The family of this 104-nucleotide RNA sequence from Paenibacillus catalpae is "Guanidine-I riboswitch aptamer".
The match comes from Rfam's covariance-model search (84 bits).
The pairing is the family consensus, mapped onto this sequence.
The source organism's lineage runs through Bacteria, Bacillati, Bacilli, Paenibacillaceae and Paenibacillus.
Rfam links the family to the GO term regulation of gene expression.
[Rfam]
RNA sequence: UUAGUGGUUUUCUAGGGUUCCGCCAAGCUUCAAAGCCUGGGUCUGGUCCGAGGGAAAACGCACAGCAAUAGCUGUGAUCACGGAAGGAUAAAAACCUGGGAGUC
Numbered sequence: 001u002u003a004g005u006g007g008u009u010u011u012c013u014a015g016g017g018u019u020c021c022g023c024c025a026a027g028c029u030u031c032a033a034a035g036c037c038u039g040g041g042u043c044u045g046g047u048c049c050g051a052g053g054g055a056a057a058a059c060g061c062a063c064a065g066c067a068a069u070a071g072c073u074g075u076g077a078u079c080a081c082g083g084a085a086g087g088a089u090a091a092a093a094a095c096c097u098g099g100g101a102g103u104c
Base pairs, nucleotide, nucleotide: 007059008058009057010056011055012054015049016048020046021045022043023040024039025038027036028035061076062075063074064073065072066071079099081102085097086096087095